Record summary
This 59-nucleotide RNA from Agreia sp. Leaf210 belongs to the Rfam family "msiK RNA". The family's consensus secondary structure is taken from published work. NCBI's taxonomy places the organism under Bacteria, Actinomycetes, Micrococcales, Microbacteriaceae, Agreia.

RNA sequence: CAGUUCAAUCCAUCACAACGGAUCGUCCGGCACGUACCUGCCGGUGAAGGAGAUUAACA
Numbered sequence: 001c002a003g004u005u006c007a008a009u010c011c012a013u014c015a016c017a018a019c020g021g022a023u024c025g026u027c028c029g030g031c032a033c034g035u036a037c038c039u040g041c042c043g044g045u046g047a048a049g050g051a052g053a054u055u056a057a058c059a
Base pairs, nucleotide, nucleotide: 009051010050011049013047014046015045027044028043029042030041031040032039